[Rfam]
RNA sequence: UAACCUCUUUCGGAAGGAAGAGCUGAACAGCCAGAAGUCAGCAGAGGUCAUAGUACCCAAGUAGGGGACGCCUGAACGGGGAAGGAC
Numbered sequence: 001u002a003a004c005c006u007c008u009u010u011c012g013g014a015a016g017g018a019a020g021a022g023c024u025g026a027a028c029a030g031c032c033a034g035a036a037g038u039c040a041g042c043a044g045a046g047g048u049c050a051u052a053g054u055a056c057c058c059a060a061g062u063a064g065g066g067g068a069c070g071c072c073u074g075a076a077c078g079g080g081g082a083a084g085g086a087c
Stems, first nucleotide, its partner, number of pairs: 001025002005022007038045002047087003056080003
Group II catalytic intron D1-D4-1: an 87-nucleotide sequence from Thermoactinomyces daqus. NCBI's taxonomy places the organism under Bacteria, Bacillota, Bacilli, Thermoactinomycetaceae, Thermoactinomyces. Pairs were carried over by alignment from the consensus structure.